The record is a 61-nucleotide RNA sequence from Medicago truncatula, which matches "MIR2629 microRNA precursor family" in Rfam. It scores 63 bits against the family's covariance model. Taxonomically the source falls in Medicago (Eukaryota, Mesangiospermae, Gunneridae, Hologalegina). Gene Ontology terms of the family: miRNA-mediated post-transcriptional gene silencing and RISC complex.
RNA sequence: GUUUGAAGUUUCCUCGGUAGUUAACUACCGAUGUUUUCCUCGGUAGUUAACUGCAGAGGGG
Numbered sequence: 001g002u003u004u005g006a007a008g009u010u011u012c013c014u015c016g017g018u019a020g021u022u023a024a025c026u027a028c029c030g031a032u033g034u035u036u037u038c039c040u041c042g043g044u045a046g047u048u049a050a051c052u053g054c055a056g057a058g059g060g061g
Base pairs, nucleotide, nucleotide: 011060012059014057015056017054018053019052020051021050022049023048024047025046026045027044028043